c-di-AMP riboswitch aptamer (ydaO/yuaA leader): a 153-nucleotide sequence from Limnothrix sp. P13C2. The organism belongs to Limnothrix, within Bacteria. Rfam 15.1 lists 7,607 matches to the family in 2,262 species.
RNA sequence: UUAAUCGAUCGGCUCUGGUCUUUAAGUCCAAUUGAAGCAGGGCGAUCGAGCGGGGGAACCAGCCUAAAUUUUGGGGCGAAUCUUGUGCUGCAAGAAGGCUACUUCCAAGCCUAGCCCGUCAGCUAACCUCGUCAGCCAAUGGAAGGAGAAUCG
Numbered sequence: 001u002u003a004a005u006c007g008a009u010c011g012g013c014u015c016u017g018g019u020c021u022u023u024a025a026g027u028c029c030a031a032u033u034g035a036a037g038c039a040g041g042g043c044g045a046u047c048g049a050g051c052g053g054g055g056g057a058a059c060c061a062g063c064c065u066a067a068a069u070u071u072u073g074g075g076g077c078g079a080a081u082c083u084u085g086u087g088c089u090g091c092a093a094g095a096a097g098g099c100u101a102c103u104u105c106c107a108a109g110c111c112u113a114g115c116c117c118g119u120c121a122g123c124u125a126a127c128c129u130c131g132u133c134a135g136c137c138a139a140u141g142g143a144a145g146g147a148g149a150a151u152c153g
Stems, first nucleotide, its partner, number of pairs: 001134001005049007050132006060073002074117003082094004097111004